Overview:
This 130-nucleotide RNA from Pipistrellus kuhlii belongs to the Rfam family "Small Cajal body specific RNA 8". It is annotated as a small Cajal body RNA. The match comes from Rfam's covariance-model search (126 bits). Rfam describes the family as follows. scaRNAs are a specific class of small nuclear RNAs which localise to the Cajal bodies and guide the modification of RNA polymerase II transcribed spliceosomal RNAs U1, U2, U4, U5 and U12. U92 belong to the H/ACA box class of guide RNAs as it has the predicted hairpin-hinge-hairpin-tail structure, conserved H/ACA-box motifs and is found associated with GAR1.

[Rfam]
RNA sequence: UGGAGAGAUGAUACAUAAAUUGAGCUAAGUAUUGCUCUGAUUGUCACUAUACCUCCCUAGAAUAAACUGCCUUUUGAUGACCGGGACGAAUUGAGUGAAAUCAUAACGGACAGAUACGGGGCAGUUAAAA
Numbered sequence: 001u002g003g004a005g006a007g008a009u010g011a012u013a014c015a016u017a018a019a020u021u022g023a024g025c026u027a028a029g030u031a032u033u034g035c036u037c038u039g040a041u042u043g044u045c046a047c048u049a050u051a052c053c054u055c056c057c058u059a060g061a062a063u064a065a066a067c068u069g070c071c072u073u074u075u076g077a078u079g080a081c082c083g084g085g086a087c088g089a090a091u092u093g094a095g096u097g098a099a100a101u102c103a104u105a106a107c108g109g110a111c112a113g114a115u116a117c118g119g120g121g122c123a124g125u126u127a128a129a130a
Stems, first nucleotide, its partner, number of pairs: 002057002005054001007052001015044004022037004067124007081109003086104001088102002